[Rfam]
RNA sequence: GUGAGGGUGAUGAACAAAAUUAAUCGGAUGUCCCAAUGAUAAAAGAAUAUAUGAUUAAUAACCAGCUACUUUUGACUCAU
Numbered sequence: 001g002u003g004a005g006g007g008u009g010a011u012g013a014a015c016a017a018a019a020u021u022a023a024u025c026g027g028a029u030g031u032c033c034c035a036a037u038g039a040u041a042a043a044a045g046a047a048u049a050u051a052u053g054a055u056u057a058a059u060a061a062c063c064a065g066c067u068a069c070u071u072u073u074g075a076c077u078c079a080u
Stems, first nucleotide, its partner, number of pairs: 001080005
Dot-bracket structure: (((((......................................................................)))))